Rfam assigns this 88-nucleotide sequence from Brachypodium distachyon to the family "Small nucleolar RNA SNORD25". The base pairs follow the family's consensus structure, which was predicted with PFOLD. Lineage of the source: Eukaryota > Euphyllophyta > Petrosaviidae > Poaceae > Brachypodium. It is annotated as a C/D-box small nucleolar RNA.
RNA sequence: GACAAUGGUGAUGGGUUCUUGCAGACCUGUAAUGAUUCUUGUGGAAAUGAUCACAUGGUUCAAAGAACAUCUAAGGGACUGAGUGGUC
Numbered sequence: 001g002a003c004a005a006u007g008g009u010g011a012u013g014g015g016u017u018c019u020u021g022c023a024g025a026c027c028u029g030u031a032a033u034g035a036u037u038c039u040u041g042u043g044g045a046a047a048u049g050a051u052c053a054c055a056u057g058g059u060u061c062a063a064a065g066a067a068c069a070u071c072u073a074a075g076g077g078a079c080u081g082a083g084u085g086g087u088c
Stems, first nucleotide, its partner, number of pairs: 002087002005084002